[Rfam]
RNA sequence: UAACCCAUGCUGCAAGGCAUGGCUGAACCCACAGAAGUCAGUCUGGACCAUAGUACCAGAGAAGUCGGUGAAAGUCGACAGAGGGAAGGGU
Number, nucleotide and partner (000 for none) at each position: 001u025002a024003a000004c000005c022006c021007a020008u019009g018010c017011u016012g000013c000014a000015a000016g011017g010018c009019a008020u007021g006022g005023c000024u002025g001026a000027a000028c000029c000030c000031a000032c000033a000034g000035a000036a000037g000038u045039c000040a000041g000042u000043c000044u000045g038046g000047a091048c090049c089050a000051u000052a000053g000054u000055a000056c084057c083058a000059g000060a000061g000062a000063a000064g079065u078066c077067g000068g000069u000070g000071a000072a000073a000074g000075u000076c000077g066078a065079c064080a000081g000082a000083g057084g056085g000086a000087a000088g000089g049090g048091u047